Nucleotides: 136
Stems, first nucleotide, its partner, number of pairs: 003062004019046006026039001074129003086116002090112001091110001093108005
Number, partner (000 for none) and nucleotide at each position: 001000c002000u003062g004061c005060a006059c007000g008000a009000u010000g011000g012000a013000a014000g015000c016000a017000a018000u019046c020045a021044u022043u023042c024041u025000g026039c027000c028000u029000u030000u031000c032000c033000c034000c035000a036000c037000g038000a039026g040000g041024a042023g043022a044021a045020u046019g047000a048000c049000u050000a051000u052000u053000c054000c055000u056000u057000c058000a059006g060005u061004g062003c063000u064000a065000u066000a067000a068000c069000a070000a071000u072000g073000a074129g075128g076127a077000c078000u079000u080000u081000u082000c083000a084000g085000g086116g087115c088000c089000a090112c091110c092000u093108g094107c095106c096105u097104u098000g099000g100000a101000g102000u103000a104097g105096a106095g107094g108093c109000c110091g111000a112090g113000u114000g115087g116086u117000a118000g119000u120000a121000u122000a123000u124000u125000u126000c127076u128075c129074c130000u131000a132000c133000a134000u135000u136000a
Rfam assigns this 136-nucleotide RNA from Salvator merianae to the family "Small nucleolar RNA U109". It is annotated as an H/ACA-box small nucleolar RNA. On this family, see Gu et al., Nucleic Acids Res 2005: "A novel experimental approach for systematic identification of box H/ACA snoRNAs from eukaryotes".